This 103-nucleotide sequence from Aquibacillus koreensis belongs to the Rfam family "Purine riboswitch aptamer".
RNA sequence: AUAAUUUCAUAGAAAUAUCGUCGUAUAAUGAUGGGGAUAUGGCCCAUGAGUUUCUACCGGACUACCGUAAAUUGGUCUGACUACGAAGAUAAACGAUAUAUUU
Numbered sequence: 001a002u003a004a005u006u007u008c009a010u011a012g013a014a015a016u017a018u019c020g021u022c023g024u025a026u027a028a029u030g031a032u033g034g035g036g037a038u039a040u041g042g043c044c045c046a047u048g049a050g051u052u053u054c055u056a057c058c059g060g061a062c063u064a065c066c067g068u069a070a071a072u073u074g075g076u077c078u079g080a081c082u083a084c085g086a087a088g089a090u091a092a093a094c095g096a097u098a099u100a101u102u103u
Stems, first nucleotide, its partner, number of pairs: 018089002021086005029049001031047005058079007
The family's consensus secondary structure is taken from published work.